Shown here is a 160-nucleotide RNA from Pseudomonas benzenivorans, a member of the family "Pseudomon-groES RNA". The organism belongs to Pseudomonas, within Bacteria. It is annotated as a cis-regulatory element. A search with the family's covariance model found it, with a score of 69 bits.
RNA sequence: GUAGCGGUCACCGCAAGGUUUUCUGCCGGUUUCGGCAGAACAGACUUCAGCGUUGUGCCAGGUGGCCUGGAAGGGCAGUCAAGCGACUGAACGUACCAGCCAUCGGGCAAACGCAACCGGCAUCGCCGGACUUUGCUAACCCGCCGGUGUAUGCACCGGC
Numbered sequence: 001g002u003a004g005c006g007g008u009c010a011c012c013g014c015a016a017g018g019u020u021u022u023c024u025g026c027c028g029g030u031u032u033c034g035g036c037a038g039a040a041c042a043g044a045c046u047u048c049a050g051c052g053u054u055g056u057g058c059c060a061g062g063u064g065g066c067c068u069g070g071a072a073g074g075g076c077a078g079u080c081a082a083g084c085g086a087c088u089g090a091a092c093g094u095a096c097c098a099g100c101c102a103u104c105g106g107g108c109a110a111a112c113g114c115a116a117c118c119g120g121c122a123u124c125g126c127c128g129g130a131c132u133u134u135g136c137u138a139a140c141c142c143g144c145c146g147g148u149g150u151a152u153g154c155a156c157c158g159g160c
Stems, first nucleotide, its partner, number of pairs: 010019003021040008050114005117129004143160006